[Rfam]
Overview
This 66-nucleotide RNA sequence from Pontibacterium sinense belongs to the Rfam family "Pseudomonas sRNA P26".

RNA sequence: UUGCAUUACAGAGCAGCAUAUAGCUGCUCGAAGUGCUGAUGGCUGGUGGCAAAUUGCCACCGGCCU
Number, nucleotide and partner (000 for none) at each position: 001u000002u000003g000004c000005a000006u000007u000008a000009c000010a000011g000012a000013g000014c038015a037016g036017c035018a034019u000020a000021u000022a000023g029024c000025u000026g000027c000028u000029c023030g000031a000032a000033g000034u018035g017036c016037u015038g014039a000040u000041g065042g064043c063044u062045g061046g060047u059048g058049g057050c056051a000052a000053a000054u000055u000056g050057c049058c048059a047060c046061c045062g044063g043064c042065c041066u000
Notes:
A reference for the family is Livny et al. (2006), "Identification of 17 Pseudomonas aeruginosa sRNAs and prediction of sRNA-encoding genes in 10 diverse pathogens using the bioinformatic tool sRNAPredict2", Nucleic Acids Res. The family's RNA type in Rfam is non-coding RNA gene. Lineage of the source: Bacteria > Pseudomonadota > Gammaproteobacteria > Oceanospirillaceae > Pontibacterium. Rfam describes the family as follows. This small RNA (sRNA) was computationally identified in the genome of the opportunistic pathogen Pseudomonas aeruginosa and its expression verified by northern blot analysis. P26 is conserved across many Gammaproteobacteria species and appears to be consistently located between the DNA directed RNA polymerase (beta subunit) and 50S ribosomal protein L7/L12 genes. It scores 37 bits against the family's covariance model.